mir-7 microRNA precursor family: an 89-nucleotide sequence from Effrenium voratum. On this family, see Ambros, Cell 2001: "microRNAs: tiny regulators with great potential". Rfam describes the family as follows. This family represents the microRNA (miRNA) precursor mir-7.
Nucleotides: 089
Base pairs, nucleotide, nucleotide: 002088003087004086005085006084008083009082011080012079013078014077015076016075017074018073020071021070022069023068024066026065027064028063029062030061031060032059034058035057036056037055039053
Number, partner (000 for none) and nucleotide at each position: 001000u002088u003087u004086u005085u006084u007000u008083g009082u010000u011080u012079u013078u014077u015076u016075u017074g018073g019000a020071a021070a022069a023068c024066u025000c026065g027064a028063g029062g030061u031060u032059u033000u034058u035057u036056u037055g038000g039053a040000u041000u042000u043000u044000c045000u046000g047000g048000a049000a050000a051000a052000g053039u054000g055037u056036a057035a058034a059032a060031a061030a062029c063028c064027u065026c066024g067000a068023g069022u070021u071020u072000u073018c074017c075016a076015a077014a078013a079012a080011a081000a082009a083008c084006a085005a086004a087003a088002a089000a